[Rfam]
RNA sequence: CUGCUGGCGGUGACGAAAUGAAACGGACUAGAGUUUCUGAAACCAGCUUAUGCUGGGUUUGAAGAUACAACCCUUGGCUGUCCGAGCCUUUGCAG
Numbered sequence: 001c002u003g004c005u006g007g008c009g010g011u012g013a014c015g016a017a018a019u020g021a022a023a024c025g026g027a028c029u030a031g032a033g034u035u036u037c038u039g040a041a042a043c044c045a046g047c048u049u050a051u052g053c054u055g056g057g058u059u060u061g062a063a064g065a066u067a068c069a070a071c072c073c074u075u076g077g078c079u080g081u082c083c084g085a086g087c088c089u090u091u092g093c094a095g
Stems, first nucleotide, its partner, number of pairs: 001095004006088003034064004041058001043056004

This 95-nucleotide RNA sequence from Ectocarpus siliculosus belongs to the Rfam family "Small nucleolar RNA Z157/R69/R10". The organism belongs to Ectocarpus, within Eukaryota. A reference for the family is Chen et al. (2003), "The high diversity of snoRNAs in plants: identification and comparative study of 120 snoRNA genes from Oryza sativa", Nucleic Acids Res. Pairs were carried over by alignment from the consensus structure, which was predicted with PFOLD. Its Rfam clan is "SNORD52 clan". Its family is annotated with RNA processing and nucleolus in the Gene Ontology.